[Rfam]
RNA sequence: AGAUAGAUAGUAUGGUCGAAAGAUUAAUCUUUCGACCAUACUAUCUAUCUCUUAUAAUACUGCCAAUUCUAAUU
Numbered sequence: 001a002g003a004u005a006g007a008u009a010g011u012a013u014g015g016u017c018g019a020a021a022g023a024u025u026a027a028u029c030u031u032u033c034g035a036c037c038a039u040a041c042u043a044u045c046u047a048u049c050u051c052u053u054a055u056a057a058u059a060c061u062g063c064c065a066a067u068u069c070u071a072a073u074u
Stems, first nucleotide, its partner, number of pairs: 006045018

Rfam assigns this 74-nucleotide RNA sequence from Phtheirospermum japonicum to the family "Plastid-psbM 3UTR RNA". The family's consensus secondary structure was predicted with LocARNA. The source organism's lineage runs through Eukaryota, Tracheophyta, Magnoliopsida, eudicotyledons and Phtheirospermum. For this family Rfam cites "Retrograde signaling in plants: A critical review focusing on the GUN pathway and beyond" (Richter et al., Plant Commun, 2023). A search with the family's covariance model found it, with a score of 55 bits.